[Rfam]
RNA sequence: CACCAGACCCCGGGGGGCCGGAUGUGACCGGCUGAGAGGCAGCGUGCUCGCUGCGACCCGCUGAACCUGAUCCGGUUUGCACCGGCGGAGGGAGGGCUGGCCGCGAUGCU
Numbered sequence: 001c002a003c004c005a006g007a008c009c010c011c012g013g014g015g016g017g018c019c020g021g022a023u024g025u026g027a028c029c030g031g032c033u034g035a036g037a038g039g040c041a042g043c044g045u046g047c048u049c050g051c052u053g054c055g056a057c058c059c060g061c062u063g064a065a066c067c068u069g070a071u072c073c074g075g076u077u078u079g080c081a082c083c084g085g086c087g088g089a090g091g092g093a094g095g096g097c098u099g100g101c102c103g104c105g106a107u108g109c110u
Base pairs, nucleotide, nucleotide: 006098008096009095010094011060012059013058014057016054017032018031019030020029021028040053041052042051043050066091067090068089072085073084074083075082